Nucleotides: 077
Stems, first nucleotide, its partner, number of pairs: 013045001015044004023075004028040003049066007
Number, partner (000 for none) and nucleotide at each position: 001000g002000a003000a004000a005000u006000c007000a008000a009000g010000c011000u012000u013045u014000a015044g016043g017042c018041c019000a020000u021000a022000a023075c024074a025073g026072a027000a028040g029039c030038a031000a032000u033000c034000g035000u036000g037000a038030u039029g040028u041018g042017g043016c044015c045013a046000u047000g048000c049066c050065a051064g052063a053062u054061u055060u056000c057000a058000a059000c060055a061054a062053a063052u064051c065050u066049g067000u068000g069000a070000a071000c072026u073025u074024u075023g076000c077000c